[Rfam]
RNA sequence: CAGUUGAAAAAAAUAUUGCCGUAGACAGCAGGUGCAUAAGCGGAAAUCCUGCCGAGGAAAAUUGUUAAAAUCAUUCUCUCUUUGUCUGCGUCAAAGAGAUUUUUUUUAUGUUUU
Number, nucleotide and partner (000 for none) at each position: 001c000002a000003g000004u000005u000006g000007a000008a000009a000010a000011a000012a000013a000014u000015a000016u000017u000018g000019c000020c000021g000022u000023a000024g000025a000026c000027a000028g052029c051030a050031g049032g048033u000034g041035c040036a000037u000038a000039a000040g035041c034042g000043g000044a000045a000046a000047u000048c032049c031050u030051g029052c028053c000054g000055a000056g000057g000058a000059a000060a000061a000062u000063u000064g000065u000066u000067a000068a000069a000070a000071u000072c000073a000074u000075u000076c000077u099078c098079u097080c096081u095082u094083u093084g092085u000086c090087u000088g000089c000090g086091u000092c084093a083094a082095a081096g080097a079098g078099a077100u000101u000102u000103u000104u000105u000106u000107u000108a000109u000110g000111u000112u000113u000114u000
RNA: Ribosomal protein L10 leader